Ribosomal protein L10 leader: a 122-nucleotide RNA from Acetobacterium woodii. It is annotated as a cis-regulatory leader. The base pairs follow the family's consensus structure, which was predicted with CMfinder. Gene Ontology term of the family: regulation of gene expression. Lineage of the source: Bacteria > Bacillati > Eubacteriaceae > Acetobacterium > Acetobacterium woodii. For this family Rfam cites "Diverse mechanisms for regulating ribosomal protein synthesis in Escherichia coli" (Zengel and Lindahl, Prog Nucleic Acid Res Mol Biol, 1994).

[Rfam]
RNA sequence: UAUUAAAGACACAUUCAUCCAUAGACAGUAGGUCUGUAAAUCCUACCGAGGUUGAAGAGAAAAAAGCUUAAUGAAUGAUAGAGCUCUCUUCACACUGUGGAGUGAGCUUUUUUGAUACAAUU
Numbered sequence: 001u002a003u004u005a006a007a008g009a010c011a012c013a014u015u016c017a018u019c020c021a022u023a024g025a026c027a028g029u030a031g032g033u034c035u036g037u038a039a040a041u042c043c044u045a046c047c048g049a050g051g052u053u054g055a056a057g058a059g060a061a062a063a064a065a066g067c068u069u070a071a072u073g074a075a076u077g078a079u080a081g082a083g084c085u086c087u088c089u090u091c092a093c094a095c096u097g098u099g100g101a102g103u104g105a106g107c108u109u110u111u112u113u114g115a116u117a118c119a120a121u122u
Stems, first nucleotide, its partner, number of pairs: 028046005083107004088102005